This 270-nucleotide RNA sequence from Podarcis muralis belongs to the Rfam family "Small Cajal body specific RNA 6". Gene Ontology terms of the family: nucleolus and RNA processing. Rfam classes the family as a small Cajal body RNA. Rfam's curators write: U88 is small Cajal body specific RNA (scaRNA). scaRNAs are a novel class of small nuclear RNAs which localise to the Cajal bodies. U88 is found associated with both fibrillarin and Gar1p and co-localises with coilin in Cajal bodies. The literature on the family includes a 2002 paper in EMBO J by Darzacq et al., "Cajal body-specific small nuclear RNAs: a novel class of 2'-O-methylation and pseudouridylation guide RNAs". It scores 114 bits against the family's covariance model.

RNA sequence: GGUCAGUGAUGAACAGUAAAAGGUCUGAUUUGCCCAGUGGUUUUGCCUCCUUUACCAUCGCAGCUCCCAGCAUUUUCUCUUCCAUCAUAUUCUAGACAUGCUAUGAUUGGGAGAGUAUUUGCUGAUAAAUAGAGAUACGUUCAGUUUGUGUUACUCUAGAGCACUGGGUAGACGUGACUGACAUUGUUAUCCAACAUAUACAGAUAAUGGAGUUUUUGAGGUAUUGGAGCCACUUUAUGGGUAUAUGAUCUCAAAUUUUUAGCUGAGACC
Numbered sequence: 001g002g003u004c005a006g007u008g009a010u011g012a013a014c015a016g017u018a019a020a021a022g023g024u025c026u027g028a029u030u031u032g033c034c035c036a037g038u039g040g041u042u043u044u045g046c047c048u049c050c051u052u053u054a055c056c057a058u059c060g061c062a063g064c065u066c067c068c069a070g071c072a073u074u075u076u077c078u079c080u081u082c083c084a085u086c087a088u089a090u091u092c093u094a095g096a097c098a099u100g101c102u103a104u105g106a107u108u109g110g111g112a113g114a115g116u117a118u119u120u121g122c123u124g125a126u127a128a129a130u131a132g133a134g135a136u137a138c139g140u141u142c143a144g145u146u147u148g149u150g151u152u153a154c155u156c157u158a159g160a161g162c163a164c165u166g167g168g169u170a171g172a173c174g175u176g177a178c179u180g181a182c183a184u185u186g187u188u189a190u191c192c193a194a195c196a197u198a199u200a201c202a203g204a205u206a207a208u209g210g211a212g213u214u215u216u217u218g219a220g221g222u223a224u225u226g227g228a229g230c231c232a233c234u235u236u237a238u239g240g241g242u243a244u245a246u247g248a249u250c251u252c253a254a255a256u257u258u259u260u261a262g263c264u265g266a267g268a269c270c
Stems, first nucleotide, its partner, number of pairs: 001270004037252001039250004046227002052221002064212004068124005081110002084107006090100001132192001134191004147176006155168001156166001